[Rfam]
RNA sequence: UGACUGCAAUAAACAUUCAUUGCUGUCGGUGGGUUUCUAAUAGACACAACUCACUGAUCAAUGAAUGCAAACUGCGGUGCA
Numbered sequence: 001u002g003a004c005u006g007c008a009a010u011a012a013a014c015a016u017u018c019a020u021u022g023c024u025g026u027c028g029g030u031g032g033g034u035u036u037c038u039a040a041u042a043g044a045c046a047c048a049a050c051u052c053a054c055u056g057a058u059c060a061a062u063g064a065a066u067g068c069a070a071a072c073u074g075c076g077g078u079g080c081a
Stems, first nucleotide, its partner, number of pairs: 001081002004077005014067009025058007033050003